[Rfam]
RNA sequence: CAACCUCGUGCGGGAGAGUCCCGGUGCCGACCAGGCCCCGGGCGCCGAAGGAGCAACUCCUCCCCGGAAUCUCUCAGGCCCCUGUACCGCGCGGGGAAG
Numbered sequence: 001c002a003a004c005c006u007c008g009u010g011c012g013g014g015a016g017a018g019u020c021c022c023g024g025u026g027c028c029g030a031c032c033a034g035g036c037c038c039c040g041g042g043c044g045c046c047g048a049a050g051g052a053g054c055a056a057c058u059c060c061u062c063c064c065c066g067g068a069a070u071c072u073c074u075c076a077g078g079c080c081c082c083u084g085u086a087c088c089g090c091g092c093g094g095g096g097a098a099g
Base pairs, nucleotide, nucleotide: 006094007093008092009091010090011089012088013087020042021041022040023039044079045078046077047075048074051073052072053071057067058066
RNA: Glycine riboswitch aptamer